[Rfam]
RNA sequence: AGGCAUGUUGCAACCCCGGGCUUUUCUGAAUAAUUCAUGAAGUGAAAGCCCCAUUGCACAUGCUAAAUUGAUGCUAUUCGUGUUGCAGUUCAUCUCAAUAUAUUCCACGGUAGAUCUGUGUCAAAGUAAUGGCAACAUUG
Numbered sequence: 001a002g003g004c005a006u007g008u009u010g011c012a013a014c015c016c017c018g019g020g021c022u023u024u025u026c027u028g029a030a031u032a033a034u035u036c037a038u039g040a041a042g043u044g045a046a047a048g049c050c051c052c053a054u055u056g057c058a059c060a061u062g063c064u065a066a067a068u069u070g071a072u073g074c075u076a077u078u079c080g081u082g083u084u085g086c087a088g089u090u091c092a093u094c095u096c097a098a099u100a101u102a103u104u105c106c107a108c109g110g111u112a113g114a115u116c117u118g119u120g121u122c123a124a125a126g127u128a129a130u131g132g133c134a135a136c137a138u139u140g
Base pairs, nucleotide, nucleotide: 003063004062005061006060007059008058010057011056018051019050020049021048022047023045024044026042027041073133074132075131076130077129078128081123082122084120085119086118087117088116092111093110094109
This 140-nucleotide RNA from Trifolium subterraneum belongs to the Rfam family "small nucleolar RNA snoR134". The family has 5 seed sequences and 792 matches in Rfam 15.1. By type it is an H/ACA-box small nucleolar RNA. On this family, see Chen and Wu, Nucleic Acids Res 2009: "Mining small RNA sequencing data: a new approach to identify small nucleolar RNAs in Arabidopsis". Rfam links the family to the GO terms nucleolus and RNA processing.